[Rfam]
A member of the RNA family "SAM riboswitch aptamer (S box leader)" from Planotetraspora thailandica, 139 nucleotides long. Taxonomically the source falls in Planotetraspora (Bacteria, Bacillati, Actinomycetota, Actinomycetes). The SAM riboswitch is found upstream of a number of genes which code for proteins involved in methionine or cysteine biosynthesis in Gram-positive bacteria.

RNA sequence: UGCUCAUCCAGAGGGGUGGAGGGACCGGCCCUGCGAAGCCCCGGCAACCUUCCCGGCGUCCGACUCGUGACCACGAGGCCGGCCGGGACAGGUGCCAAUUCCGGCUCGUGAUCAGGGUGGUCGCGAGCGAAGAUGAGGG
Number, nucleotide and partner (000 for none) at each position: 001u139002g000003c137004u136005c135006a134007u133008c132009c000010a000011g000012a000013g042014g041015g040016g039017u038018g000019g000020a000021g031022g030023g029024a000025c104026c103027g102028g101029c023030c022031c021032u000033g000034c000035g000036a000037a000038g017039c016040c015041c014042c013043g096044g095045c094046a093047a000048c092049c091050u088051u087052c086053c085054c000055g000056g000057c000058g000059u000060c000061c000062g000063a000064c000065u000066c000067g000068u000069g000070a000071c000072c000073a000074c000075g000076a000077g000078g000079c000080c000081g000082g000083c000084c000085g053086g052087g051088a050089c000090a000091g049092g048093u046094g045095c044096c043097a000098a000099u000100u131101c028102c027103g026104g025105c127106u126107c125108g124109u123110g122111a121112u120113c119114a000115g000116g000117g000118u000119g113120g112121u111122c110123g109124c108125g107126a106127g105128c000129g000130a000131a100132g008133a007134u006135g005136a004137g003138g000139g001